Shown here is an 81-nucleotide sequence, a member of the family "mir-83 microRNA precursor family". The base pairs follow the family's consensus structure, which was predicted with RNAalifold. Its family is annotated with RISC complex and miRNA-mediated post-transcriptional gene silencing in the Gene Ontology. Rfam 15.1 lists 60 matches to the family in 55 species.
RNA sequence: UCCUCGGAACCACUGGGUUUAUGUGUGUACUGGACGGCCAGAGCAUUGAUCUAGCACCAUAUAAAUUCAGUAUUUCCGGUA
Numbered sequence: 001u002c003c004u005c006g007g008a009a010c011c012a013c014u015g016g017g018u019u020u021a022u023g024u025g026u027g028u029a030c031u032g033g034a035c036g037g038c039c040a041g042a043g044c045a046u047u048g049a050u051c052u053a054g055c056a057c058c059a060u061a062u063a064a065a066u067u068c069a070g071u072a073u074u075u076c077c078g079g080u081a
Base pairs, nucleotide, nucleotide: 012071013070014069015068016067017066018065019064020063021062022061024059025058027057028056030054031053033051034050035048036047